The family of this 111-nucleotide RNA from Nannospalax galili is "mir-1260b microRNA precursor family". Pairs were carried over by alignment from the consensus structure, which was predicted with RNAalifold. A search with the family's covariance model found it, with a score of 96 bits.

RNA sequence: GUGGCUGCUGCUCUCCGUUUACCCCACCACCGCUGCCACCGUUAUUGCUGCUGGUCAGCAGGUGCUGCUGGCGGUGGUGGUGGUAGUCUGGUGGAGGUGGUGGGGCCGCUG
Numbered sequence: 001g002u003g004g005c006u007g008c009u010g011c012u013c014u015c016c017g018u019u020u021a022c023c024c025c026a027c028c029a030c031c032g033c034u035g036c037c038a039c040c041g042u043u044a045u046u047g048c049u050g051c052u053g054g055u056c057a058g059c060a061g062g063u064g065c066u067g068c069u070g071g072c073g074g075u076g077g078u079g080g081u082g083g084u085a086g087u088c089u090g091g092u093g094g095a096g097g098u099g100g101u102g103g104g105g106c107c108g109c110u111g
Stems, first nucleotide, its partner, number of pairs: 007109002010106005015100004022096001024094005029087001033086003037082012056070006
Dot-bracket structure: ......((.(((((((((...(.((((((...(((.((((((((((((.......((((((...)))))))))))))))))).))))..))))).))))).))))).))..